mir-130 microRNA precursor family: a 117-nucleotide RNA from Ornithorhynchus anatinus. The family has 9 seed sequences and 2,580 matches in Rfam 15.1. For this family Rfam cites "Identification of tissue-specific microRNAs from mouse" (Lagos-Quintana et al., Curr Biol, 2002). A search with the family's covariance model found it, with a score of 45 bits. Rfam links the family to the GO terms RISC complex and miRNA-mediated post-transcriptional gene silencing. The source organism's lineage runs through Eukaryota, Craniata, Vertebrata, Prototheria and Ornithorhynchus.
[Rfam]
RNA sequence: CCCAAGCCCAGGCUCUUUCCACUGAGCCACGCUGCUUCUCCAUAUUUGUUAAGUGCUUUCUACGUUCCAGGUAUUGUAGAAGCAGCGUGGCUCAGUGGAAAGAGCAUGGGCUUUGGA
Dot-bracket structure: .((.((((((.((((((((..((((((((((((((((((......................................))))))))))))))))))..)))))))).))))))..)).